Source information:
The family of this 173-nucleotide RNA from Thermodesulfitimonas autotrophica is "Group II catalytic intron D1-D4-3". Taxonomically the source falls in Thermodesulfitimonas (Bacteria, Bacillati, Bacillota, Thermoanaerobacterales). Gene Ontology term of the family: Group II intron splicing. Rfam 15.1 lists 4,274 matches to the family in 1,585 species.
RNA sequence: UCCGCCGUGAGGCGGGAUCUGGAGGAAGCCGGCGGCAAACCUCUGGCCCGAGGACCACGAACCCCAGGCGAGGCUAGUGGCAGUUGGACGAGCUUGCAACACAAAGCAAAGUCCUUGCUACCGAAGGCUGCCAAGAGUAAAUGGGGCGGGCGAAUGGAGGGAAAGACAGCGCU
Numbered sequence: 001u002c003c004g005c006c007g008u009g010a011g012g013c014g015g016g017a018u019c020u021g022g023a024g025g026a027a028g029c030c031g032g033c034g035g036c037a038a039a040c041c042u043c044u045g046g047c048c049c050g051a052g053g054a055c056c057a058c059g060a061a062c063c064c065c066a067g068g069c070g071a072g073g074c075u076a077g078u079g080g081c082a083g084u085u086g087g088a089c090g091a092g093c094u095u096g097c098a099a100c101a102c103a104a105a106g107c108a109a110a111g112u113c114c115u116u117g118c119u120a121c122c123g124a125a126g127g128c129u130g131c132c133a134a135g136a137g138u139a140a141a142u143g144g145g146g147c148g149g150g151c152g153a154a155u156g157g158a159g160g161g162a163a164a165g166a167c168a169g170c171g172c173u
Stems, first nucleotide, its partner, number of pairs: 001016006028173001030171002036165001040160006046151005062146005073138003078133006086114004092107004